[Rfam]
RNA sequence: UCGUUUUCAAGCUGAUGAAAACAUUUAUUUUACACAGUUAUCCCUGUCUUAAUAAAUCAUGUCGAGAAUUGUGAAUCUGAAAAUAGA
Numbered sequence: 001u002c003g004u005u006u007u008c009a010a011g012c013u014g015a016u017g018a019a020a021a022c023a024u025u026u027a028u029u030u031u032a033c034a035c036a037g038u039u040a041u042c043c044c045u046g047u048c049u050u051a052a053u054a055a056a057u058c059a060u061g062u063c064g065a066g067a068a069u070u071g072u073g074a075a076u077c078u079g080a081a082a083a084u085a086g087a
Stems, first nucleotide, its partner, number of pairs: 001087002005083003
Notes
The record is an 87-nucleotide RNA from Brettanomyces naardenensis, which matches "Small nucleolar RNA R38" in Rfam. The literature on the family includes a 1995 paper in Trends Biochem Sci by Bachellerie et al., "Antisense snoRNAs: a family of nucleolar RNAs with long complementarities to rRNA". snoR38 is a C/D box small nucleolar RNA conserved across yeast, human, Arabidopsis and rice. A search with the family's covariance model found it, with a score of 56 bits. Gene Ontology terms of the family: RNA processing and nucleolus.